RNA sequence: UCGCAAUCCGCCAGUCGGUCUAGCCGUGUCGCGGAAGGUUUGUAACCCACUACAGCGCUGGAAACCAGUGCGAAAGGUGAGCG
Dot-bracket structure: .(((..(((((....((((...))))....))))).((((...))))((((...(((((((...)))))))....)))).)))
This 83-nucleotide RNA sequence from Rhizobacter sp. Root29 belongs to the Rfam family "SucA RNA motif". A reference for the family is Weinberg et al. (2007), "Identification of 22 candidate structured RNAs in bacteria using the CMfinder comparative genomics pipeline", Nucleic Acids Res. A search with the family's covariance model found it, with a score of 82 bits. The base pairs follow the family's consensus structure, which is taken from published work.